[Rfam]
RNA sequence: GCCAGCUUGACGGGGUGCCGGUGGAACCGGCUGAGAUCGUCCUGCGCCGGAAUUCAUUCGACGGCGCCACGGCGGAUCCCGACGAACCUGAUCCGGCUAGUACCGGCGUAGGGAUCAAGCGGAGACCGUGG
Dot-bracket structure: .....(((((((((.((((((.....)))))......((((.............................)))))..)))).....((((..((((......))))..))))..)))))............

TPP riboswitch aptamer (THI element): a 131-nucleotide sequence from Salinicola sp. MIT1003. Lineage of the source: Bacteria > Pseudomonadati > Gammaproteobacteria > Halomonadaceae > Salinicola. A search with the family's covariance model found it, with a score of 73 bits.